SAM riboswitch aptamer (S box leader): a 102-nucleotide sequence from Bacillus sp. MRMR6. A search with the family's covariance model found it, with a score of 80 bits. NCBI's taxonomy places the organism under Bacteria, Bacillati, Bacilli, Bacillaceae, Bacillus. Pairs were carried over by alignment from the consensus structure, which is taken from published work.
RNA sequence: CUCUUAUCCAGAGAGGCGGAGGGACUGGCCCGACGAUGCCCGGCAACCGGUUUAACAACACGGUGCUAAUUCCAGCAGAGCAAAGUCUCUGGCCGAUAAGAA
Numbered sequence: 001c002u003c004u005u006a007u008c009c010a011g012a013g014a015g016g017c018g019g020a021g022g023g024a025c026u027g028g029c030c031c032g033a034c035g036a037u038g039c040c041c042g043g044c045a046a047c048c049g050g051u052u053u054a055a056c057a058a059c060a061c062g063g064u065g066c067u068a069a070u071u072c073c074a075g076c077a078g079a080g081c082a083a084a085g086u087c088u089c090u091g092g093c094c095g096a097u098a099a100g101a102a
Stems, first nucleotide, its partner, number of pairs: 002101007013041001015040003021031003025075004042067004047063002049059001051057001076091005